A member of the RNA family "CyVA-1 RNA" from Fischerella muscicola, 78 nucleotides long. It is one of the family's seed sequences. About the family: Cyanobacteria, Acidobacteria (1 example), Verrucomicrobia (1 example). The source organism's lineage runs through Bacteria, Bacillati, Hapalosiphonaceae, Fischerella and Fischerella muscicola.
RNA sequence: GCACUGGCAGAACGUUAAACCGCUUAAGUUCUUGAUAGUAGUUACCAUCAAAAGUGAUGUUAAAACUAUUAACGGUGC
Numbered sequence: 001g002c003a004c005u006g007g008c009a010g011a012a013c014g015u016u017a018a019a020c021c022g023c024u025u026a027a028g029u030u031c032u033u034g035a036u037a038g039u040a041g042u043u044a045c046c047a048u049c050a051a052a053a054g055u056g057a058u059g060u061u062a063a064a065a066c067u068a069u070u071a072a073c074g075g076u077g078c
Stems, first nucleotide, its partner, number of pairs: 001078006009032004037070007